[Rfam]
RNA sequence: AAAUUUAUAGGUGAUGGAGUUCGCCUUCAACUACUGUCAAACAGUUAAUGACUCCUACAAAGCA
Numbered sequence: 001a002a003a004u005u006u007a008u009a010g011g012u013g014a015u016g017g018a019g020u021u022c023g024c025c026u027u028c029a030a031c032u033a034c035u036g037u038c039a040a041a042c043a044g045u046u047a048a049u050g051a052c053u054c055c056u057a058c059a060a061a062g063c064a
Stems, first nucleotide, its partner, number of pairs: 010025004016055006033045004